[Rfam]
RNA: transfer-messenger RNA
RNA sequence: GGGGCUGUCCUGGUUUCGACGUGGGUUCGGAAUCGGUGUGGUGCAUGUCGAGCUUGAGUGACGCUCGUAAAUCUCCAUUCAUCAAAGUAACUGCAAACGACGAACGUUUCGCACUCGCCGCUUAAACACCGGUGAGCCUUGCAACAGCACGCUGAUGGGCUGGGCAAGGGGGUAGCAAUACCUCCCGGCUGCAAGGGAAUUCACAUCAGCUGGCUCCGUGUCGGGUACCUUGGCAUGGAGCGAGACUCAAGGGUGCUGGCGUUUCAUAUAGCGUGCGUCUGCGCGAUAUGGAACGUGAGAUCCAAACCAGAACGCUAAACAUGUAGAUCUGCUCGAGGAAGGCUUGCGGACGCGGGUUCAAUUCCCGCCAGCUCCACCA
Numbered sequence: 001g002g003g004g005c006u007g008u009c010c011u012g013g014u015u016u017c018g019a020c021g022u023g024g025g026u027u028c029g030g031a032a033u034c035g036g037u038g039u040g041g042u043g044c045a046u047g048u049c050g051a052g053c054u055u056g057a058g059u060g061a062c063g064c065u066c067g068u069a070a071a072u073c074u075c076c077a078u079u080c081a082u083c084a085a086a087g088u089a090a091c092u093g094c095a096a097a098c099g100a101c102g103a104a105c106g107u108u109u110c111g112c113a114c115u116c117g118c119c120g121c122u123u124a125a126a127c128a129c130c131g132g133u134g135a136g137c138c139u140u141g142c143a144a145c146a147g148c149a150c151g152c153u154g155a156u157g158g159g160c161u162g163g164g165c166a167a168g169g170g171g172g173u174a175g176c177a178a179u180a181c182c183u184c185c186c187g188g189c190u191g192c193a194a195g196g197g198a199a200u201u202c203a204c205a206u207c208a209g210c211u212g213g214c215u216c217c218g219u220g221u222c223g224g225g226u227a228c229c230u231u232g233g234c235a236u237g238g239a240g241c242g243a244g245a246c247u248c249a250a251g252g253g254u255g256c257u258g259g260c261g262u263u264u265c266a267u268a269u270a271g272c273g274u275g276c277g278u279c280u281g282c283g284c285g286a287u288a289u290g291g292a293a294c295g296u297g298a299g300a301u302c303c304a305a306a307c308c309a310g311a312a313c314g315c316u317a318a319a320c321a322u323g324u325a326g327a328u329c330u331g332c333u334c335g336a337g338g339a340a341g342g343c344u345u346g347c348g349g350a351c352g353c354g355g356g357u358u359c360a361a362u363u364c365c366c367g368c369c370a371g372c373u374c375c376a377c378c379a
Base pairs, nucleotide, nucleotide: 001375002374003373004372005371006370007369020348021347022346023345024344025343026342027341033336034335035334038332039331040330041329044323045322046321047320048319049067050066051065052064053063055081056080057079058078059077060076114136115135116134117133118132119131120130138195139194140193141192142191143190145162146161147160148159151210152209153208154207155206156205157204213241214240215239216238217237218236219235220234221233223257224256228252259296260295261294262293263292264291265290266289267288268287271284272283273282275315276314277313278312281307352368353367354366355365356364